[Rfam]
RNA sequence: GGCAGUAUCAUCAUUAAGAACAGUGAGAACCUGUUCCACCGUAAGAGUAAGGGUUCCUCUGCAAUGAUUAUCAGCAGAGGGUUAGUCGGUCCUAAUCCACACCGUAAUUCGAAUGUGGAGAAUAGGGAAACAGGUUAAUAUUCCUGUACCUAAUCACAUUUUCUGACGUUUUGGGAUAGCGGAAGCUGCGCCACCGCGCAGUCUAAGCAAGUAAUGCGGACGAGCGUAAUGCAUCGACUCCGUGAACUUGUGAAUGGCCCGGGAAAAAUCCCAGGUUUCCGCAAGUCCUGGAAUCCUUGAAAAAGUGUGAAAGACCGUACCCAGAACCAGCACAGGUACUCUGGCUGAGUAGGCUAAGGUGUU
Numbered sequence: 001g002g003c004a005g006u007a008u009c010a011u012c013a014u015u016a017a018g019a020a021c022a023g024u025g026a027g028a029a030c031c032u033g034u035u036c037c038a039c040c041g042u043a044a045g046a047g048u049a050a051g052g053g054u055u056c057c058u059c060u061g062c063a064a065u066g067a068u069u070a071u072c073a074g075c076a077g078a079g080g081g082u083u084a085g086u087c088g089g090u091c092c093u094a095a096u097c098c099a100c101a102c103c104g105u106a107a108u109u110c111g112a113a114u115g116u117g118g119a120g121a122a123u124a125g126g127g128a129a130a131c132a133g134g135u136u137a138a139u140a141u142u143c144c145u146g147u148a149c150c151u152a153a154u155c156a157c158a159u160u161u162u163c164u165g166a167c168g169u170u171u172u173g174g175g176a177u178a179g180c181g182g183a184a185g186c187u188g189c190g191c192c193a194c195c196g197c198g199c200a201g202u203c204u205a206a207g208c209a210a211g212u213a214a215u216g217c218g219g220a221c222g223a224g225c226g227u228a229a230u231g232c233a234u235c236g237a238c239u240c241c242g243u244g245a246a247c248u249u250g251u252g253a254a255u256g257g258c259c260c261g262g263g264a265a266a267a268a269u270c271c272c273a274g275g276u277u278u279c280c281g282c283a284a285g286u287c288c289u290g291g292a293a294u295c296c297u298u299g300a301a302a303a304a305g306u307g308u309g310a311a312a313g314a315c316c317g318u319a320c321c322c323a324g325a326a327c328c329a330g331c332a333c334a335g336g337u338a339c340u341c342u343g344g345c346u347g348a349g350u351a352g353g354c355u356a357a358g359g360u361g362u363u
Stems, first nucleotide, its partner, number of pairs: 018036006037361004045341004051321002056080006065073002087317003091126002096119006103111002130147005150313002163305002168294009179282005185202005207251004217242004224235001225231001263270001327336002342356004
RNA: Archaeal large subunit ribosomal RNA, nucleotides 1376 to 1738
Organism: Candidatus Haloredivivus sp. G17